[Rfam]
RNA sequence: CGUCGAGGACGACCUCGAUGCCGGCCCCGUGCAGGGCCGCGACGGCGCGG
Numbered sequence: 001c002g003u004c005g006a007g008g009a010c011g012a013c014c015u016c017g018a019u020g021c022c023g024g025c026c027c028c029g030u031g032c033a034g035g036g037c038c039g040c041g042a043c044g045g046c047g048c049g050g
Stems, first nucleotide, its partner, number of pairs: 001020008037050005
A member of the RNA family "Guanidine-II riboswitch aptamer (mini-ykkC)" from Kineococcus radiotolerans, 50 nucleotides long. The base pairs follow the family's consensus structure, which is taken from published work. Rfam links the family to the GO term regulation of gene expression. Simpler in structure and has fewer highly conserved nucleotide positions than the ykkC-yxkD leader. NCBI's taxonomy places the organism under Bacteria, Bacillati, Actinomycetota, Kineococcus, Kineococcus radiotolerans.